[Rfam]
This 135-nucleotide RNA from Aliterella atlantica belongs to the Rfam family "Guanidine-I riboswitch aptamer". The source organism's lineage runs through Bacteria, Bacillati, Cyanobacteriota, Cyanophyceae and Aliterella atlantica. For this family Rfam cites "New RNA motifs suggest an expanded scope for riboswitches in bacterial genetic control" (Barrick et al., Proc Natl Acad Sci U S A, 2004). A search with the family's covariance model found it, with a score of 71 bits.
RNA sequence: AUAAUCAGCUUCUAGGGUUCCGAUUUAAGUUUUUAGCCAAGGUGAGAAACUUAAAUGCCAGGUCCGAGAGAAGCAGCCAGCUAACAGAAUUUCUUUGUGAUGGUGGUUACACGGCGGGAAAAAAGCCCGGGAGAA
Dot-bracket structure: .......(((((..((...(((((((((((((((..........))))))))))))..).)).))....))))).(.(.((((.................)))).).).(.[...(((.......))).)..]..
Numbered sequence: 001a002u003a004a005u006c007a008g009c010u011u012c013u014a015g016g017g018u019u020c021c022g023a024u025u026u027a028a029g030u031u032u033u034u035a036g037c038c039a040a041g042g043u044g045a046g047a048a049a050c051u052u053a054a055a056u057g058c059c060a061g062g063u064c065c066g067a068g069a070g071a072a073g074c075a076g077c078c079a080g081c082u083a084a085c086a087g088a089a090u091u092u093c094u095u096u097g098u099g100a101u102g103g104u105g106g107u108u109a110c111a112c113g114g115c116g117g118g119a120a121a122a123a124a125g126c127c128c129g130g131g132a133g134a135a
Stems, first nucleotide, its partner, number of pairs: 008074005015065002020062002022059001023056012076108001078106001080104004110130001112133001116128003